[Rfam]
A member of the RNA family "Small nucleolar RNA R160" from Camellia sinensis, 80 nucleotides long. Gene Ontology terms of the family: nucleolus and RNA processing. The organism belongs to Camellia, within Eukaryota.
RNA sequence: AGCAAAAUGAUGAAGUUCUUUAAUCCGAAGCUCUAUGUGGAACACAUAUAUAUAAUGGUUUUCAAAGUUCUCUGAUUGCU
Numbered sequence: 001a002g003c004a005a006a007a008u009g010a011u012g013a014a015g016u017u018c019u020u021u022a023a024u025c026c027g028a029a030g031c032u033c034u035a036u037g038u039g040g041a042a043c044a045c046a047u048a049u050a051u052a053u054a055a056u057g058g059u060u061u062u063c064a065a066a067g068u069u070c071u072c073u074g075a076u077u078g079c080u
Base pairs, nucleotide, nucleotide: 001080002079003078004077005076

Rfam 15.1 lists 799 matches to the family in 221 species.